RNA sequence: GGACAGGACUCUGGAGAGACUCCUCACAAGGGAGCACCGAAGGGGCAAUACGCAAGGCAUGGCUGUCGUCCAUGAAUUGCGUGCAAACUCUCAGGUAAAAGGACAGAGAUCGCAGG
Numbered sequence: 001g002g003a004c005a006g007g008a009c010u011c012u013g014g015a016g017a018g019a020c021u022c023c024u025c026a027c028a029a030g031g032g033a034g035c036a037c038c039g040a041a042g043g044g045g046c047a048a049u050a051c052g053c054a055a056g057g058c059a060u061g062g063c064u065g066u067c068g069u070c071c072a073u074g075a076a077u078u079g080c081g082u083g084c085a086a087a088c089u090c091u092c093a094g095g096u097a098a099a100a101g102g103a104c105a106g107a108g109a110u111c112g113c114a115g116g
Base pairs, nucleotide, nucleotide: 006111007110009108010107011106012105013104020034021033022032023031036096037095038094039092040091043090044089045088049083050082051081052080053079054078055077

The record is a 116-nucleotide RNA sequence from Paenibacillus aquistagni, which matches "Glycine riboswitch aptamer" in Rfam.